FMN riboswitch aptamer (RFN element): a 148-nucleotide RNA from Minwuia thermotolerans. The RFN element is a highly conserved domain that is found frequently in the 5'-untranslated regions of prokaryotic mRNAs that encode for flavin mononucleotide (FMN) biosynthesis and transport proteins. This element is a metabolite-dependent riboswitch that directly binds FMN in the absence of proteins. In Bacillus subtilis, the riboswitch most likely controls gene expression by causing premature transcription termination within the 5' untranslated region of the ribDEAHT operon and precluding access to the ribosome-binding site of ypaA mRNA.The FMN riboswitch structure, reported in present an FMN-bound six-stem junction, adopts a butterfly-like scaffold, stapled together by opposingly directed but nearly identically folded peripheral domains.
RNA sequence: ACGCUUUCUCAGGGCAGGGUGAAAUUCCCGACCGGCGGUAACGGGGCUCAGGCCUCGAAGCCCGCGAGCGCCUCAGCGACGUUGAGGGUCAGCAGACCCGGUGCAAUUCCGGGGCCGACGGUAACAGUCCGGAUGGGAGAGAGAGCAU
Numbered sequence: 001a002c003g004c005u006u007u008c009u010c011a012g013g014g015c016a017g018g019g020u021g022a023a024a025u026u027c028c029c030g031a032c033c034g035g036c037g038g039u040a041a042c043g044g045g046g047c048u049c050a051g052g053c054c055u056c057g058a059a060g061c062c063c064g065c066g067a068g069c070g071c072c073u074c075a076g077c078g079a080c081g082u083u084g085a086g087g088g089u090c091a092g093c094a095g096a097c098c099c100g101g102u103g104c105a106a107u108u109c110c111g112g113g114g115c116c117g118a119c120g121g122u123a124a125c126a127g128u129c130c131g132g133a134u135g136g137g138a139g140a141g142a143g144a145g146c147a148u
Stems, first nucleotide, its partner, number of pairs: 003146008017029003031128002033117002035065004060115002068093002097113005119131003
Dot-bracket structure: ..((((((((......(((.......))).[[((((((.....................[[))))..((......................))...(((((.......)))))]])).(((.....]]))).......))))))))..